[Rfam]
RNA sequence: UGAGUGAUUCAAGGCCAUAGCAGAAGCCUUCACUGUGCAGCCCUGUCAGAUUCUGACGAAUAUGCGAAUUCUGCU
Numbered sequence: 001u002g003a004g005u006g007a008u009u010c011a012a013g014g015c016c017a018u019a020g021c022a023g024a025a026g027c028c029u030u031c032a033c034u035g036u037g038c039a040g041c042c043c044u045g046u047c048a049g050a051u052u053c054u055g056a057c058g059a060a061u062a063u064g065c066g067a068a069u070u071c072u073g074c075u
Base pairs, nucleotide, nucleotide: 013042014041015040019075020074021073022072023071024070025069026038027037047064048063050061051060052059053058

A member of the RNA family "Mammalian CPEB3 ribozyme" from Alligator mississippiensis, 75 nucleotides long. The match comes from Rfam's covariance-model search (55 bits). Pairs were carried over by alignment from the consensus structure, which is taken from published work.